[Rfam]
RNA: MIR2118 microRNA precursor family
Organism: Triticum aestivum
RNA sequence: GCUGGGAAGAGGAAGAAAGAGAAAACUCAAGAACACUGGGCAUGGGAACAUGUAAGAAACCCCUGCUUGUUUGUUUGCACCUCUACUGUUUGAGGUUCAAAUAUUUUCCAUGGAUCCUUUCCCGAUGUCUCCCAUUCCUACCGUUCUCGUGCACCCCUUCCUCUUCCUUUUGGCU
Numbered sequence: 001g002c003u004g005g006g007a008a009g010a011g012g013a014a015g016a017a018a019g020a021g022a023a024a025a026c027u028c029a030a031g032a033a034c035a036c037u038g039g040g041c042a043u044g045g046g047a048a049c050a051u052g053u054a055a056g057a058a059a060c061c062c063c064u065g066c067u068u069g070u071u072u073g074u075u076u077g078c079a080c081c082u083c084u085a086c087u088g089u090u091u092g093a094g095g096u097u098c099a100a101a102u103a104u105u106u107u108c109c110a111u112g113g114a115u116c117c118u119u120u121c122c123c124g125a126u127g128u129c130u131c132c133c134a135u136u137c138c139u140a141c142c143g144u145u146c147u148c149g150u151g152c153a154c155c156c157c158u159u160c161c162u163c164u165u166c167c168u169u170u171u172g173g174c175u
Base pairs, nucleotide, nucleotide: 009166010165011164012163013162015160016159017158021156026151028149030147031146032145033144034143037140038139039138040137042135043134044133045132046131047130049127050126051125056121057120058119059118060113061112